Rfam assigns this 117-nucleotide sequence from Pseudoalteromonas ulvae to the family "Ribosomal S15 leader".
The match comes from Rfam's covariance-model search (96 bits).
Pairs were carried over by alignment from the consensus structure, which is taken from published work.
Its Rfam clan is "Ribosomal Protein S15 Leader clan".
RNA sequence: CGUUUUGGCUGAAUUAGUGAUCGGCUGAGACACCUAUUAAAUAUUAUUUUUGGAGUUAUUAUGUCACUAAGUACUCAAGAUAAAGCAGAUAUCGUAGCAAAAUUCGCACGCGCUGAA
Numbered sequence: 001c002g003u004u005u006u007g008g009c010u011g012a013a014u015u016a017g018u019g020a021u022c023g024g025c026u027g028a029g030a031c032a033c034c035u036a037u038u039a040a041a042u043a044u045u046a047u048u049u050u051u052g053g054a055g056u057u058a059u060u061a062u063g064u065c066a067c068u069a070a071g072u073a074c075u076c077a078a079g080a081u082a083a084a085g086c087a088g089a090u091a092u093c094g095u096a097g098c099a100a101a102a103u104u105c106g107c108a109c110g111c112g113c114u115g116a117a
Stems, first nucleotide, its partner, number of pairs: 007026006049071005055065001
Dot-bracket structure: ......((((((........))))))......................(((((.(.........).)))))..............................................